[Rfam]
RNA sequence: CCUCCUUUUCUUGGCAGGCUGCGGGCAUGUGGUCCUGGACCCCGUUAAGUAUGGAGGCAGACGGCAAGGACUCCGGUCUCCUCGGCGUCAUGGCUUCGAUGCCGGCGGCUUCUGGUCUGCCGGUUCUAGCCUCAAACUCCGGGACAAGA
Numbered sequence: 001c002c003u004c005c006u007u008u009u010c011u012u013g014g015c016a017g018g019c020u021g022c023g024g025g026c027a028u029g030u031g032g033u034c035c036u037g038g039a040c041c042c043c044g045u046u047a048a049g050u051a052u053g054g055a056g057g058c059a060g061a062c063g064g065c066a067a068g069g070a071c072u073c074c075g076g077u078c079u080c081c082u083c084g085g086c087g088u089c090a091u092g093g094c095u096u097c098g099a100u101g102c103c104g105g106c107g108g109c110u111u112c113u114g115g116u117c118u119g120c121c122g123g124u125u126c127u128a129g130c131c132u133c134a135a136a137c138u139c140c141g142g143g144a145c146a147a148g149a
Stems, first nucleotide, its partner, number of pairs: 001057005015044001017042002020039001022037004083141003087137002102123007
Rfam assigns this 149-nucleotide sequence from Chrysochloris asiatica to the family "Small nucleolar RNA SNORA57". From the family's description: U99 belongs to the H/ACA class of snoRNAs which are thought to guide the sites of modification of uridines to pseudouridines, the target for this family is unknown. The base pairs follow the family's consensus structure, which was predicted with PFOLD. A search with the family's covariance model found it, with a score of 137 bits. Rfam links the family to the GO terms RNA processing and nucleolus. Lineage of the source: Eukaryota > Eumetazoa > Teleostomi > Tetrapoda > Chrysochloris. By type it is an H/ACA-box small nucleolar RNA.